Rfam assigns this 173-nucleotide RNA sequence from Mycetohabitans endofungorum to the family "Burkholderia RNA 14". The literature on the family includes a 2013 paper in Genomics by Ramos et al., "Experimental identification of small non-coding regulatory RNAs in the opportunistic human pathogen Burkholderia cenocepacia J2315". Co-purified with Hfq, expression confirmed by Northern blot. Putative functional homologue of PA-SraF. Overlaps coding sequence. The family has 3 seed sequences and 98 matches in Rfam 15.1. The family's RNA type in Rfam is small RNA. It scores 112 bits against the family's covariance model. The family's consensus secondary structure was predicted with RNAfold. The source organism's lineage runs through Bacteria, Pseudomonadati, Betaproteobacteria, Burkholderiaceae and Mycetohabitans.
[Rfam]
RNA sequence: GUUGGCGUGGUGACGGUGGAGCCCAAGCCGGUGCCGGUGAUCACCGAUCUGCCCGGGCGCACCAGCGCGUAUCUCGUUGCGCAGGUGCGCGCGCGGGUGGACGGCAUUGUGCAGCGCCGCGAAUUCACUGAGGGUAGCGAGGUUAAGACCGGCCAGCGGCUGUACAAGAUCGA
Numbered sequence: 001g002u003u004g005g006c007g008u009g010g011u012g013a014c015g016g017u018g019g020a021g022c023c024c025a026a027g028c029c030g031g032u033g034c035c036g037g038u039g040a041u042c043a044c045c046g047a048u049c050u051g052c053c054c055g056g057g058c059g060c061a062c063c064a065g066c067g068c069g070u071a072u073c074u075c076g077u078u079g080c081g082c083a084g085g086u087g088c089g090c091g092c093g094c095g096g097g098u099g100g101a102c103g104g105c106a107u108u109g110u111g112c113a114g115c116g117c118c119g120c121g122a123a124u125u126c127a128c129u130g131a132g133g134g135u136a137g138c139g140a141g142g143u144u145a146a147g148a149c150c151g152g153c154c155a156g157c158g159g160c161u162g163u164a165c166a167a168g169a170u171c172g173a
Stems, first nucleotide, its partner, number of pairs: 004053004008047001010045001011043003016038001021034002023031002055150002058147001059143002063139001067135002072133001074131002078093005094121002097118001100115001102114001104112003157172002160168002